[Rfam]
RNA sequence: GCAGACUCACUCUGUCCUGAACUGCAGCCUUCAGUUCAGGUGCUUUUCUGUCUGCGAGAGUAAGAGCUCACAGGAGUGACGAUGGCCUUCUUUCCUGUGGAAGGUUGUUACAGUUGCUGUUGGGACAUGGCU
Numbered sequence: 001g002c003a004g005a006c007u008c009a010c011u012c013u014g015u016c017c018u019g020a021a022c023u024g025c026a027g028c029c030u031u032c033a034g035u036u037c038a039g040g041u042g043c044u045u046u047u048c049u050g051u052c053u054g055c056g057a058g059a060g061u062a063a064g065a066g067c068u069c070a071c072a073g074g075a076g077u078g079a080c081g082a083u084g085g086c087c088u089u090c091u092u093u094c095c096u097g098u099g100g101a102a103g104g105u106u107g108u109u110a111c112a113g114u115u116g117c118u119g120u121u122g123g124g125a126c127a128u129g130g131c132u
Stems, first nucleotide, its partner, number of pairs: 001055006016040005022034003067123002070120004075114001077112002081109001085106001087104002
RNA: Small nucleolar RNA SNORA77
Organism: Copsychus sechellarum